[Rfam]
Nucleotides: 358
Base pairs, nucleotide, nucleotide: 001321002320003319009318011198012197013196014195016192018191019190020189022085023084024083025082026081027080028079030078032074033073034072035071036070037069038068039067045063046062047061048060049059050058051057089185090184091183092181093180094179097176100174101173102172103171104170105169106168107151108150111147112146113145114144115143116142117141118140122133123132124131159166160165203244204243205242206241207240208239212238213237217233218232219231220230255317256316257315258314259313260312263295264294265293266292267291268290269289270288271287272286273285274284275283276282299306300305323350324349325348332343333342334341335340
Number, partner (000 for none) and nucleotide at each position: 001321a002320g003319u004000c005000u006000a007000a008000a009318g010000c011198g012197u013196u014195c015000g016192u017000a018191a019190c020189c021000g022085g023084u024083c025082u026081u027080a028079u029000a030078a031000a032074u033073c034072u035071u036070c037069a038068g039067a040000u041000a042000a043000a044000u045063u046062c047061u048060u049059c050058c051057g052000c053000u054000u055000a056000a057051c058050g059049g060048a061047a062046g063045a064000a065000c066000u067039u068038c069037u070036g071035a072034a073033g074032a075000g076000a077000c078030u079028g080027u081026a082025a083024g084023a085022c086000u087000u088000g089185g090184g091183a092181c093180c094179g095000g096000g097176u098000g099000a100174g101173g102172u103171u104170g105169a106168a107151u108150g109000u110000a111147c112146u113145u114144u115143c116142a117141g118140g119000g120000u121000a122133g123132g124131g125000g126000u127000a128000a129000a130000a131124u132123c133122c134000u135000g136000u137000a138000a139000u140118c141117c142116u143115g144114a145113a146112a147111g148000g149000a150108c151107g152000a153000c154000c155000g156000g157000u158000g159166g160165c161000g162000a163000a164000a165160g166159c167000g168106u169105u170104c171103a172102a173101c174100u175000a176097g177000a178000a179094c180093g181092g182000a183091u184090c185089c186000g187000a188000c189020g190019g191018u192016g193000a194000g195014g196013g197012a198011c199000g200000a201000a202000g203244g204243c205242u206241a207240g208239g209000g210000g211000a212238g213237c214000a215000a216000a217233c218232c219231g220230g221000a222000u223000u224000a225000g226000a227000u228000a229000c230220c231219c232218g233217g234000g235000u236000a237213g238212u239208c240207c241206u242205a243204g244203c245000u246000g247000u248000a249000a250000a251000c252000g253000c254000u255317g256316c257315c258314c259313a260312c261000u262000u263295g264294g265293u266292g267291u268290u269289g270288c271287u272286u273285c274284u275283c276282c277000g278000u279000u280000g281000a282276g283275g284274g285273g286272g287271g288270g289269c290268a291267g292266u293265g294264c295263c296000g297000u298000a299306g300305c301000g302000a303000a304000g305300g306299u307000g308000u309000u310000a311000a312260g313259u314258g315257g316256g317255u318009c319003a320002c321001u322000u323350g324349g325348g326000g327000a328000g329000u330000a331000c332343g333342g334341c335340c336000g337000c338000a339000a340335g341334g342333c343332u344000g345000a346000a347000a348325c349324u350323u351000a352000a353000a354000g355000g356000a357000a358000u

This 358-nucleotide part of an RNA from Thermoplasma acidophilum belongs to the Rfam family "Archaeal small subunit ribosomal RNA". The literature on the family includes a 2001 paper in Science by Yusupov et al., "Crystal structure of the ribosome at 5.5 A resolution". Lineage of the source: Archaea > Thermoplasmatota > Thermoplasmata > Thermoplasmatales > Thermoplasma. Its family is annotated with structural constituent of ribosome and ribosome in the Gene Ontology. The base pairs follow the family's consensus structure, which is taken from published work.